[Rfam]
RNA sequence: CACAGAGUUAUACUGGAGAUAUGGAAGAGCUGUGUUGGGUAUAAGUAACAGGCUUUUCUUUAUCUUCUAUGUGGCUCUUUGCA
Numbered sequence: 001c002a003c004a005g006a007g008u009u010a011u012a013c014u015g016g017a018g019a020u021a022u023g024g025a026a027g028a029g030c031u032g033u034g035u036u037g038g039g040u041a042u043a044a045g046u047a048a049c050a051g052g053c054u055u056u057u058c059u060u061u062a063u064c065u066u067c068u069a070u071g072u073g074g075c076u077c078u079u080u081g082c083a
Stems, first nucleotide, its partner, number of pairs: 001081002007075006015067006023059007033050005
Dot-bracket structure: ((....((((((..((((((..(((((((...(((((........)))))..)))))))..))))))..))))))....))..